[Rfam]
RNA sequence: UAAAAGGCGUCCGCUAGUGGGCUGCUUUUACCUAGAGGUGGUCUGCGACACUGUCAAAUUGCGGGAAGUUCCUAAAGCUAUUGCUACCAAGCCGGUCUCUGAAAAGGGGCGGCGGCCGGGGUAAUGACCUAGGGUAUGGUAACAACGCAAUAGAUGCAACAAUGGAUGAUCCGCAGCCAAGUCCUAAGGUGCUGCCGCGCUAUGGAUGCAGUUCAACGACUAAAUGGCAGUGGGUUGGAGGCGAAACGUGUCGUGCGUACUCGCCUUCAGCUUAAGAUAUAGUCUACUCCCCUGGGAAACUAGGGG
Numbered sequence: 001u002a003a004a005a006g007g008c009g010u011c012c013g014c015u016a017g018u019g020g021g022c023u024g025c026u027u028u029u030a031c032c033u034a035g036a037g038g039u040g041g042u043c044u045g046c047g048a049c050a051c052u053g054u055c056a057a058a059u060u061g062c063g064g065g066a067a068g069u070u071c072c073u074a075a076a077g078c079u080a081u082u083g084c085u086a087c088c089a090a091g092c093c094g095g096u097c098u099c100u101g102a103a104a105a106g107g108g109g110c111g112g113c114g115g116c117c118g119g120g121g122u123a124a125u126g127a128c129c130u131a132g133g134g135u136a137u138g139g140u141a142a143c144a145a146c147g148c149a150a151u152a153g154a155u156g157c158a159a160c161a162a163u164g165g166a167u168g169a170u171c172c173g174c175a176g177c178c179a180a181g182u183c184c185u186a187a188g189g190u191g192c193u194g195c196c197g198c199g200c201u202a203u204g205g206a207u208g209c210a211g212u213u214c215a216a217c218g219a220c221u222a223a224a225u226g227g228c229a230g231u232g233g234g235u236u237g238g239a240g241g242c243g244a245a246a247c248g249u250g251u252c253g254u255g256c257g258u259a260c261u262c263g264c265c266u267u268c269a270g271c272u273u274a275a276g277a278u279a280u281a282g283u284c285u286a287c288u289c290c291c292c293u294g295g296g297a298a299a300c301u302a303g304g305g306g
Base pairs, nucleotide, nucleotide: 049232050231051230052229053228055226056225060175061174062173063172064171065170070166071165072164176212177211181207182206183205184204189200190199191198192197216285218284219283220282221281222280234271235270236269237268238267239266240265241264242263243262244261291304292303293302294301295300
Background: The family of this 306-nucleotide RNA from Domatiomyces globalis is "Group I catalytic intron".